This 43-nucleotide RNA sequence from Nothoprocta perdicaria belongs to the Rfam family "MAT2A 3'UTR stem loop D". It scores 33 bits against the family's covariance model. The family's consensus secondary structure is taken from published work.
Nucleotides: 043
Base pairs, nucleotide, nucleotide: 001043002042003041004040005039006038010036011034012033013032014031015030
Number, partner (000 for none) and nucleotide at each position: 001043c002042c003041u004040g005039a006038g007000g008000c009000g010036c011034g012033g013032g014031g015030c016000g017000u018000g019000a020000g021000u022000a023000c024000a025000g026000a027000g028000a029000a030015g031014c032013c033012c034011c035000g036010g037000g038006c039005u040004c041003a042002g043001g
For this family Rfam cites "New families of human regulatory RNA structures identified by comparative analysis of vertebrate genomes" (Parker et al., Genome Res, 2011).